Small Cajal body specific RNA 24: a 122-nucleotide sequence from Rattus norvegicus. The family's consensus secondary structure was predicted with RNAfold. Taxonomically the source falls in Rattus (Eukaryota, Euteleostomi, Amniota, Theria). Gene Ontology terms of the family: RNA processing, nucleolus and Cajal body.
[Rfam]
RNA sequence: UGGACAUUUAUAUUGUCAAAUUCUUCAGCAAGUGAAGAUAAUGUCAUUUAUGAAUGUCCUGUAGUAGCUUUCUGUUCAUCCUUUUCGAGAAGAGAGGGUGGAUGGUACCUCUACUGACAUUC
Numbered sequence: 001u002g003g004a005c006a007u008u009u010a011u012a013u014u015g016u017c018a019a020a021u022u023c024u025u026c027a028g029c030a031a032g033u034g035a036a037g038a039u040a041a042u043g044u045c046a047u048u049u050a051u052g053a054a055u056g057u058c059c060u061g062u063a064g065u066a067g068c069u070u071u072c073u074g075u076u077c078a079u080c081c082u083u084u085u086c087g088a089g090a091a092g093a094g095a096g097g098g099u100g101g102a103u104g105g106u107a108c109c110u111c112u113a114c115u116g117a118c119a120u121u122c
Stems, first nucleotide, its partner, number of pairs: 002059010020044001021040001022038005062116006081096004

Rfam's curators write: scaRNAs are a specific class of small nuclear RNAs which localise to the Cajal bodies and guide the modification of RNA polymerase II transcribed spliceosomal RNAs U1, U2, U4, U5 and U12.